[Rfam]
RNA sequence: UGGAAGAACUCUCUUUAAGGAACUCUGCAAAAUAGCACCGUAUCUUCGGUAUAAGGUGUGGUUAGCCUCGUAUUAGGAUUUACUCCGAAAGCGAGGAAACUUACAACAAAGAGUCCCUCCCGACUGUUUACCAAAAACACAGCACUCUGCUAACUCGUAAGAGGAUGUAUAGGGUGUGACGCCUGCCCGGUGCUCGAAGGUUAAUUGAUGGGGUUAGCAUUAGCGAAGCUCUUGAUCGAAGCCCGAGUAAACGGCGGCCGUAACUAUAACGGUCCUAAGGUAGCGAAAUUCCUUGUCGGUUAAAUACCGACCUGCAUGAAUGGCGUAACGAGAUGGGAGCUGUCUCAAAGAGGGAUCCA
Numbered sequence: 001u002g003g004a005a006g007a008a009c010u011c012u013c014u015u016u017a018a019g020g021a022a023c024u025c026u027g028c029a030a031a032a033u034a035g036c037a038c039c040g041u042a043u044c045u046u047c048g049g050u051a052u053a054a055g056g057u058g059u060g061g062u063u064a065g066c067c068u069c070g071u072a073u074u075a076g077g078a079u080u081u082a083c084u085c086c087g088a089a090a091g092c093g094a095g096g097a098a099a100c101u102u103a104c105a106a107c108a109a110a111g112a113g114u115c116c117c118u119c120c121c122g123a124c125u126g127u128u129u130a131c132c133a134a135a136a137a138c139a140c141a142g143c144a145c146u147c148u149g150c151u152a153a154c155u156c157g158u159a160a161g162a163g164g165a166u167g168u169a170u171a172g173g174g175u176g177u178g179a180c181g182c183c184u185g186c187c188c189g190g191u192g193c194u195c196g197a198a199g200g201u202u203a204a205u206u207g208a209u210g211g212g213g214u215u216a217g218c219a220u221u222a223g224c225g226a227a228g229c230u231c232u233u234g235a236u237c238g239a240a241g242c243c244c245g246a247g248u249a250a251a252c253g254g255c256g257g258c259c260g261u262a263a264c265u266a267u268a269a270c271g272g273u274c275c276u277a278a279g280g281u282a283g284c285g286a287a288a289u290u291c292c293u294u295g296u297c298g299g300u301u302a303a304a305u306a307c308c309g310a311c312c313u314g315c316a317u318g319a320a321u322g323g324c325g326u327a328a329c330g331a332g333a334u335g336g337g338a339g340c341u342g343u344c345u346c347a348a349a350g351a352g353g354g355a356u357c358c359a
Base pairs, nucleotide, nucleotide: 001359002358003357004356009354010353011352012351013350014349015348016347018345019344020343035059036058037057038056039055044049060101061100062099063098073089074088076086077085078084102106114338115337116336117335120332121330122329125139126138127137142177143176144175145174146173147172148171149170150167154163155162156161180325181324182323183322185255186254187253190252191251192248193247194246195245196244199243200242201241210232211231212230213229214228217224218223256274257273258272259271260270261269275279285312295311296310297309298308299307300306
RNA: Bacterial large subunit ribosomal RNA, nucleotides 1675 to 2033
Organism: Campylobacter sp. MIT 12-5580